[Rfam]
RNA sequence: CUACAACCCAACUGGGGGAUCGCUCGGCUCGAGUGCCGAUGAAGGUCGUGACAAGCUGCGAUAAGCUGCGGGGAGACGCAAGAAUGUCUUGGAUCCGCAGAUGGCUGAAUGGGACUUCCUGUAUCUUCGGAUACAAUCGCGAAUGCGAUAGGGAACCCCCCGAAUUGAAGCAUCUUAGUAGGGGGAGGAAAUGAAAUCAACAGAGAUUCCGUGAGUAGUGGCGAAUGAAAACGGAAUAGGACAAGCCGAAUCCCGACUCGAAAGUGAGGGAGAUGUGGUUUGCAGUCUAUCAUCUAAGUCAGAGAAGGUGAAGUUGCCUGGAACGGCACAGCCAAAGAGGGUGAAAGUCCCGUAACCAUACCUGAUAUGAUCACGUGACUGUAAAAGAGUAGCGUGCGCUGGAAAUCGCGCGUGAAUGUGGGAGGCAGAAACUUCCAAUCCUAAAUACAACUCGAGACCGAUAGUUUACAAGUAACGUGAGUGAAAGCUGAAAAGUAUCCUUGGCGGGAUGUGAAAAGAUCGUGAAACCAGUUGGGUACAGGCUGACAAGGCGUGAAAGCGAUGAUAUGAGCAGCGUCUUGUCGU
Numbered sequence: 001c002u003a004c005a006a007c008c009c010a011a012c013u014g015g016g017g018g019a020u021c022g023c024u025c026g027g028c029u030c031g032a033g034u035g036c037c038g039a040u041g042a043a044g045g046u047c048g049u050g051a052c053a054a055g056c057u058g059c060g061a062u063a064a065g066c067u068g069c070g071g072g073g074a075g076a077c078g079c080a081a082g083a084a085u086g087u088c089u090u091g092g093a094u095c096c097g098c099a100g101a102u103g104g105c106u107g108a109a110u111g112g113g114a115c116u117u118c119c120u121g122u123a124u125c126u127u128c129g130g131a132u133a134c135a136a137u138c139g140c141g142a143a144u145g146c147g148a149u150a151g152g153g154a155a156c157c158c159c160c161c162g163a164a165u166u167g168a169a170g171c172a173u174c175u176u177a178g179u180a181g182g183g184g185g186a187g188g189a190a191a192u193g194a195a196a197u198c199a200a201c202a203g204a205g206a207u208u209c210c211g212u213g214a215g216u217a218g219u220g221g222c223g224a225a226u227g228a229a230a231a232c233g234g235a236a237u238a239g240g241a242c243a244a245g246c247c248g249a250a251u252c253c254c255g256a257c258u259c260g261a262a263a264g265u266g267a268g269g270g271a272g273a274u275g276u277g278g279u280u281u282g283c284a285g286u287c288u289a290u291c292a293u294c295u296a297a298g299u300c301a302g303a304g305a306a307g308g309u310g311a312a313g314u315u316g317c318c319u320g321g322a323a324c325g326g327c328a329c330a331g332c333c334a335a336a337g338a339g340g341g342u343g344a345a346a347g348u349c350c351c352g353u354a355a356c357c358a359u360a361c362c363u364g365a366u367a368u369g370a371u372c373a374c375g376u377g378a379c380u381g382u383a384a385a386a387g388a389g390u391a392g393c394g395u396g397c398g399c400u401g402g403a404a405a406u407c408g409c410g411c412g413u414g415a416a417u418g419u420g421g422g423a424g425g426c427a428g429a430a431a432c433u434u435c436c437a438a439u440c441c442u443a444a445a446u447a448c449a450a451c452u453c454g455a456g457a458c459c460g461a462u463a464g465u466u467u468a469c470a471a472g473u474a475a476c477g478u479g480a481g482u483g484a485a486a487g488c489u490g491a492a493a494a495g496u497a498u499c500c501u502u503g504g505c506g507g508g509a510u511g512u513g514a515a516a517a518g519a520u521c522g523u524g525a526a527a528c529c530a531g532u533u534g535g536g537u538a539c540a541g542g543c544u545g546a547c548a549a550g551g552c553g554u555g556a557a558a559g560c561g562a563u564g565a566u567a568u569g570a571g572c573a574g575c576g577u578c579u580u581g582u583c584g585u
Base pairs, nucleotide, nucleotide: 006537007536008535009534010533011532012531013530014529015528021522022488023487026459027458028456029455030454031453032452033451034449035448044106045105046104047060048059049058066100067099068098069097070096071095075088076087077086111120112119113118136149137148138147139146140145156187157185158184159183160182161181167174168173197204198203208235209234210233211232212231218226219225238442239441240440241439246278247277248276257266259264284380285379286378287377292371293370294369307357308356309355313329315328316327317326318325333337339351340350341349392413393412394411395410396409397408398407420436421435422434423433424432475482476481545583546582547581548580549579550578551577552576553575554574559572560571